[Rfam]
RNA: mir-12 microRNA precursor family
RNA sequence: CCGGGGUGAGUAUUACAUCAGGUACUGGUGUGUAAUUUAAACGACCAUCGGACAUGGGGGCUGCCCAACUCCUCUUCUGUCCCCGGUCAAGCUAUCAGUACUUGUGUUAUACUCUCC
Number, nucleotide and partner (000 for none) at each position: 001c000002c000003g000004g000005g117006g116007u000008g000009a113010g112011u111012a110013u000014u000015a107016c106017a105018u104019c000020a000021g102022g101023u100024a099025c098026u097027g096028g095029u094030g000031u000032g000033u000034a000035a000036u000037u000038u000039a000040a000041a000042c000043g000044a000045c000046c000047a000048u000049c000050g000051g000052a000053c000054a000055u000056g000057g000058g000059g000060g000061c000062u000063g000064c000065c000066c000067a000068a000069c000070u000071c000072c000073u000074c000075u000076u000077c000078u000079g000080u000081c000082c000083c000084c000085g000086g000087u000088c000089a000090a000091g000092c000093u000094a029095u028096c027097a026098g025099u024100a023101c022102u021103u000104g018105u017106g016107u015108u000109a000110u012111a011112c010113u009114c000115u000116c006117c005